[Rfam]
RNA sequence: ACGGAAAGCCGGAUGGCCGCGGGUGCCCGACCUGGUCGGGGAUCCGAGGAAAGUCCGGACUCCACAGGGCAACGGUGCCGGGUAACGCCCGGCGGGGGUAACCCCAGGGACAGCGCCACAGAGAACAGACCGCCAUGGUCCGCCAUGGUCAGGGUGAAACGGUGCGGUAAGAGCGCACCGCGGGACGGGCAACCGGACCGGCAGGGCAAGCCCCACUGGGAGCAAUGCCGAAUAGGAACCUCGCGCGGGCAACCGCAGGGCCGCCCUGGCCCGGAGGUUCGGGUUGGCAGCUAGAGGCGCGCGGGCAACCGCGCGUUCAGAUGAAUGGUCAUCGAACCGGCGCAAGCCGGGGAACAGAAUCCGGCUUACAGGCUUUCCGUGCAU
Numbered sequence: 001a002c003g004g005a006a007a008g009c010c011g012g013a014u015g016g017c018c019g020c021g022g023g024u025g026c027c028c029g030a031c032c033u034g035g036u037c038g039g040g041g042a043u044c045c046g047a048g049g050a051a052a053g054u055c056c057g058g059a060c061u062c063c064a065c066a067g068g069g070c071a072a073c074g075g076u077g078c079c080g081g082g083u084a085a086c087g088c089c090c091g092g093c094g095g096g097g098g099u100a101a102c103c104c105c106a107g108g109g110a111c112a113g114c115g116c117c118a119c120a121g122a123g124a125a126c127a128g129a130c131c132g133c134c135a136u137g138g139u140c141c142g143c144c145a146u147g148g149u150c151a152g153g154g155u156g157a158a159a160c161g162g163u164g165c166g167g168u169a170a171g172a173g174c175g176c177a178c179c180g181c182g183g184g185a186c187g188g189g190c191a192a193c194c195g196g197a198c199c200g201g202c203a204g205g206g207c208a209a210g211c212c213c214c215a216c217u218g219g220g221a222g223c224a225a226u227g228c229c230g231a232a233u234a235g236g237a238a239c240c241u242c243g244c245g246c247g248g249g250c251a252a253c254c255g256c257a258g259g260g261c262c263g264c265c266c267u268g269g270c271c272c273g274g275a276g277g278u279u280c281g282g283g284u285u286g287g288c289a290g291c292u293a294g295a296g297g298c299g300c301g302c303g304g305g306c307a308a309c310c311g312c313g314c315g316u317u318c319a320g321a322u323g324a325a326u327g328g329u330c331a332u333c334g335a336a337c338c339g340g341c342g343c344a345a346g347c348c349g350g351g352g353a354a355c356a357g358a359a360u361c362c363g364g365c366u367u368a369c370a371g372g373c374u375u376u377c378c379g380u381g382c383a384u
Base pairs, nucleotide, nucleotide: 001380002379003378004377005376006375007374008373009372010371011369012333013332014331015330016329017328018327020046021045022044023043024042026040027039028038051367052366053365055364056363057362058361059360060222061221062220063219068267069266073218074217075216076215077214078092079091080090081089082088093107094105095104096103097102108213109212113211114210115207116206117205130153131152132149133148134147135146136145137144138143161179162178163177164176165175166174180202181200182199183198186195187194188193226289227288228287229286236280237279238278239277240276241275258272259271260270261269262268297316298315299314300313301312302311303310304309

A member of the RNA family "Bacterial RNase P class A" from Pseudooceanicola nitratireducens, 384 nucleotides long. The source organism's lineage runs through Bacteria, Pseudomonadati, Rhodobacterales, Paracoccaceae and Pseudooceanicola. The family's RNA type in Rfam is ribozyme. Ribonuclease P (RNase P) is a ubiquitous endoribonuclease, found in archaea, bacteria and eukarya as well as chloroplasts and mitochondria. Pairs were carried over by alignment from the consensus structure, which is taken from published work. Its family is annotated with ribonuclease P activity, dimeric ribonuclease P complex and tRNA processing in the Gene Ontology.